[Rfam]
RNA: Small Cajal body specific RNA 8
Organism: Dinoponera quadriceps
RNA sequence: CGGGAGAUAGAUACUCAAGUUUCGGCAAGUUAAGAUGCUUGACAUAAUUCUUCCCAAGAACAAAGGAAAAAGGUGCCUUCUGAUGACUGUAACUUGUGAAGCGUUAAUUUACAGACAGAUACGGGGCAUACAUUU
Numbered sequence: 001c002g003g004g005a006g007a008u009a010g011a012u013a014c015u016c017a018a019g020u021u022u023c024g025g026c027a028a029g030u031u032a033a034g035a036u037g038c039u040u041g042a043c044a045u046a047a048u049u050c051u052u053c054c055c056a057a058g059a060a061c062a063a064a065g066g067a068a069a070a071a072g073g074u075g076c077c078u079u080c081u082g083a084u085g086a087c088u089g090u091a092a093c094u095u096g097u098g099a100a101g102c103g104u105u106a107a108u109u110u111a112c113a114g115a116c117a118g119a120u121a122c123g124g125g126g127c128a129u130a131c132a133u134u135u
Stems, first nucleotide, its partner, number of pairs: 002055005015042004022035002073129007087114003092109001094107002
Dot-bracket structure: .(((((........((((...((..........))...))))........))))).................(((((((.......(((..(.((..........)).)..)))........)))))))......